[Rfam]
RNA: Small nucleolar RNA U3
RNA sequence: AAUGCUAUACUUUCAUGGGUCAUUUCUAUAGUUUGUUACUAGAGAAGUUUCUCUGAAUGUGUUGAGCACCAGAAACCACGAGGAGAUGCAGUAUUCUCUCCUGAACGGGAAGCCAGCUUUUGGCAUUGCUUUGAUGCAACUACCAUUUGCCAUUGAUGGCAAUGCAUCACUUCCUCUAGGAGUGUAAGAGGGAGUGGAUGCAGUCAGAGUGGU
Numbered sequence: 001a002a003u004g005c006u007a008u009a010c011u012u013u014c015a016u017g018g019g020u021c022a023u024u025u026c027u028a029u030a031g032u033u034u035g036u037u038a039c040u041a042g043a044g045a046a047g048u049u050u051c052u053c054u055g056a057a058u059g060u061g062u063u064g065a066g067c068a069c070c071a072g073a074a075a076c077c078a079c080g081a082g083g084a085g086a087u088g089c090a091g092u093a094u095u096c097u098c099u100c101c102u103g104a105a106c107g108g109g110a111a112g113c114c115a116g117c118u119u120u121u122g123g124c125a126u127u128g129c130u131u132u133g134a135u136g137c138a139a140c141u142a143c144c145a146u147u148u149g150c151c152a153u154u155g156a157u158g159g160c161a162a163u164g165c166a167u168c169a170c171u172u173c174c175u176c177u178a179g180g181a182g183u184g185u186a187a188g189a190g191g192g193a194g195u196g197g198a199u200g201c202a203g204u205c206a207g208a209g210u211g212g213u
Stems, first nucleotide, its partner, number of pairs: 002040001006035002009032003015027001017026003049065002054061001075213005091201006098194005105163001116150002121145003126139004167186001168184006
Dot-bracket structure: .(...((.(((...(.(((....))))..))).))....)........((...(......)..)).........(((((...........((((((.(((((..(..........((...(((..((((......))))...)))...))............)...(((((((.....)))))).)...))))).)))))).......)))))